[Rfam]
RNA sequence: GCCUCGAACGUUGGGGAGUAGCCGGCCUUAGUCAACUAAGGAAUCUGCAUCAACACUCUUGGCCCGCAGGCCAUGGUGCAGAUAAUCGAAAGAUUUGGCGAGACCAUAGCUCAAAUGACGACCGCAUGGGCCGGGGUCGCUGUUUGUGCUUUGGUUAUCAUCCGGCCCCG
Numbered sequence: 001g002c003c004u005c006g007a008a009c010g011u012u013g014g015g016g017a018g019u020a021g022c023c024g025g026c027c028u029u030a031g032u033c034a035a036c037u038a039a040g041g042a043a044u045c046u047g048c049a050u051c052a053a054c055a056c057u058c059u060u061g062g063c064c065c066g067c068a069g070g071c072c073a074u075g076g077u078g079c080a081g082a083u084a085a086u087c088g089a090a091a092g093a094u095u096u097g098g099c100g101a102g103a104c105c106a107u108a109g110c111u112c113a114a115a116u117g118a119c120g121a122c123c124g125c126a127u128g129g130g131c132c133g134g135g136g137u138c139g140c141u142g143u144u145u146g147u148g149c150u151u152u153g154g155u156u157a158u159c160a161u162c163c164g165g166c167c168c169c170g
Base pairs, nucleotide, nucleotide: 026041027040028039043083044082045081046080047079048078049077050076051075052074060073061072062071063070064069
RNA: Manganese Mn2+ riboswitch aptamer (yybP-ykoY)